[Rfam]
RNA sequence: AAAAUCGUACAUAAAAACACAUUUCGGUUGGUAGUCCGAACAAUUUUAAUUGAAGUAACCUUCCCUCCCUGGGUCGUCCAGUGUACAGAGUAUUGCA
Numbered sequence: 001a002a003a004a005u006c007g008u009a010c011a012u013a014a015a016a017a018c019a020c021a022u023u024u025c026g027g028u029u030g031g032u033a034g035u036c037c038g039a040a041c042a043a044u045u046u047u048a049a050u051u052g053a054a055g056u057a058a059c060c061u062u063c064c065c066u067c068c069c070u071g072g073g074u075c076g077u078c079c080a081g082u083g084u085a086c087a088g089a090g091u092a093u094u095g096c097a
Stems, first nucleotide, its partner, number of pairs: 005088001007086005023040005041052004063073003
A member of the RNA family "azaaromatic riboswitch aptamer (yjdF RNA)" from Vagococcus entomophilus, 97 nucleotides long.
The family's consensus secondary structure is taken from published work.
The match comes from Rfam's covariance-model search (68 bits).
Taxonomically the source falls in Vagococcus (Bacteria, Bacillota, Lactobacillales, Enterococcaceae).